[Rfam]
The family of this 157-nucleotide sequence from Camellia sinensis is "U12 minor spliceosomal RNA". It is annotated as a spliceosomal small nuclear RNA. Rfam links the family to the GO terms pre-mRNA branch point binding, mRNA branch site recognition and U12 snRNP. The organism belongs to Camellia sinensis, within Eukaryota.

RNA sequence: UUGCCUUAAACUAAUGAGUAAGGAAAACAAAGCGAUCGGUGAAAGCCGCUAGCCGCGCAGAACACAAAAUUUGUGUGCAUGAAUUUAUGGAGGGGUUAUAGGCUGGCCGAGCGUUGGCGCUGCUUACUUUUGCAGAACUCGCUUGAGCGGGCCUCCC
Numbered sequence: 001u002u003g004c005c006u007u008a009a010a011c012u013a014a015u016g017a018g019u020a021a022g023g024a025a026a027a028c029a030a031a032g033c034g035a036u037c038g039g040u041g042a043a044a045g046c047c048g049c050u051a052g053c054c055g056c057g058c059a060g061a062a063c064a065c066a067a068a069a070u071u072u073g074u075g076u077g078c079a080u081g082a083a084u085u086u087a088u089g090g091a092g093g094g095g096u097u098a099u100a101g102g103c104u105g106g107c108c109g110a111g112c113g114u115u116g117g118c119g120c121u122g123c124u125u126a127c128u129u130u131u132g133c134a135g136a137a138c139u140c141g142c143u144u145g146a147g148c149g150g151g152c153c154u155c156c157c
Stems, first nucleotide, its partner, number of pairs: 004023005032053002035050001037048003054077008094157002100154005106148001108145002111142003120135004
Dot-bracket structure: ...(((((..........)))))........((.(.(((......))).).))((((((((........))))))))................((....(((((.(.((.(((......((((........))))....))).))..).))))).))